[Rfam]
The family of this 74-nucleotide sequence from Scyliorhinus torazame is "mir-23 microRNA precursor family". A search with the family's covariance model found it, with a score of 60 bits. Gene Ontology terms of the family: gene silencing by miRNA and RISC complex. The family's consensus secondary structure was predicted with PFOLD. The organism belongs to Scyliorhinus, within Eukaryota.
RNA sequence: GGCCGAGUGGGUUCCUGGCAUACUGAUUUGUGACAUGAGAUAAAAAUCACAUUGCCAGGGAUUACCACAUAGUC
Numbered sequence: 001g002g003c004c005g006a007g008u009g010g011g012u013u014c015c016u017g018g019c020a021u022a023c024u025g026a027u028u029u030g031u032g033a034c035a036u037g038a039g040a041u042a043a044a045a046a047u048c049a050c051a052u053u054g055c056c057a058g059g060g061a062u063u064a065c066c067a068c069a070u071a072g073u074c
Stems, first nucleotide, its partner, number of pairs: 001074002005070001008067003011062010024049006